[Rfam]
RNA sequence: UCAGUAGUUGGUGUAGGAUCUGUCUGACAUGAUUAAGAACAGCUACAUCUGAUUACUGGGU
Number, nucleotide and partner (000 for none) at each position: 001u059002c058003a057004g056005u055006a054007g000008u052009u051010g050011g048012u047013g046014u045015a044016g043017g000018a000019u000020c042021u041022g040023u039024c000025u000026g000027a000028c000029a000030u000031g000032a000033u000034u000035a000036a000037g000038a000039a023040c022041a021042g020043c016044u015045a014046c013047a012048u011049c000050u010051g009052a008053u000054u006055a005056c004057u003058g002059g001060g000061u000